About this RNA:
This 258-nucleotide RNA from Tardiphaga sp. vice352 belongs to the Rfam family "permuted transfer-messenger RNA". About the family: Bacterial tmRNA, also known as 10Sa RNA or SsrA, is named for its dual tRNA and mRNA-like properties.
RNA sequence: GGCGCUGAAACUCAUAGCGGACUGCGGACAGACCCGGGGGCAGUACCCGGCGCCUCCACCUCAGCAGCUCACGUCUCACUUGGGUGAGGCGAUUCUGGCCGAAAGGCGGGAUGUAAGUGCUGUUCAGGCGGGGGCGAAAUAGGAUCGAUGGUCGCAAAGAAGGUAUGAAUUGUUCCCGGCAUGAUACCGCCGUUAUCGGGUCAAAACCUAAAUGCAAACGAUAACGUUCGCAUGAACGAAGUGCGCCUCGCGGCGUAA
Number, nucleotide and partner (000 for none) at each position: 001g176002g175003c000004g173005c172006u000007g000008a000009a000010a000011c000012u000013c000014a166015u165016a164017g000018c000019g000020g000021a000022c000023u000024g155025c154026g153027g000028a000029c150030a149031g000032a000033c000034c050035c049036g048037g047038g046039g000040g000041c000042a000043g000044u000045a000046c038047c037048c036049g035050g034051c136052g135053c134054c133055u132056c131057c130058a000059c000060c000061u000062c000063a000064g000065c000066a000067g000068c000069u000070c000071a000072c000073g000074u000075c000076u000077c000078a000079c000080u000081u000082g000083g000084g000085u000086g000087a000088g000089g000090c000091g000092a000093u000094u000095c000096u000097g000098g000099c000100c000101g000102a000103a000104a000105g000106g000107c000108g000109g000110g000111a000112u000113g000114u000115a000116a000117g000118u000119g000120c000121u000122g000123u000124u000125c000126a000127g000128g000129c000130g057131g056132g055133g054134g053135c052136g051137a000138a000139a000140u000141a000142g000143g000144a000145u000146c000147g000148a000149u030150g029151g000152u000153c026154g025155c024156a000157a000158a000159g000160a000161a000162g000163g000164u016165a015166u014167g000168a000169a000170u000171u000172g005173u004174u000175c002176c001177c192178g191179g190180c189181a000182u000183g000184a000185u000186a000187c000188c000189g180190c179191c178192g177193u000194u000195a000196u000197c000198g000199g000200g000201u000202c000203a000204a000205a000206a000207c000208c000209u000210a000211a000212a000213u000214g000215c000216a000217a000218a000219c000220g000221a000222u000223a000224a000225c000226g000227u000228u000229c000230g000231c000232a000233u000234g000235a000236a000237c000238g000239a000240a000241g000242u000243g000244c000245g000246c000247c000248u000249c000250g000251c000252g000253g000254c000255g000256u000257a000258a000